[Rfam]
Nucleotides: 105
Stems, first nucleotide, its partner, number of pairs: 003071004008063009025051008087105001090103005
Number, partner (000 for none) and nucleotide at each position: 001000c002000u003071g004070g005069a006068c007000a008063c009062u010061c011060a012059g013058g014057u015056c016055g017000a018000u019000a020000a021000g022000c023000a024000c025051g026050a027049g028048u029047c030046u031045u032044u033000u034000g035000c036000c037000u038000u039000u040000u041000a042000c043000u044032a045031a046030a047029g048028a049027c050026u051025c052000c053000c054000a055016u056015g057014a058013u059012c060011u061010g062009a063008g064000a065000a066000a067000c068006g069005u070004c071003c072000c073000a074000c075000a076000c077000a078000a079000a080000u081000c082000u083000u084000u085000g086000g087105a088000c089000u090103g091102c092101c093100g094099a095000u096000c097000a098000c099094u100093c101092g102091g103090c104000u105087u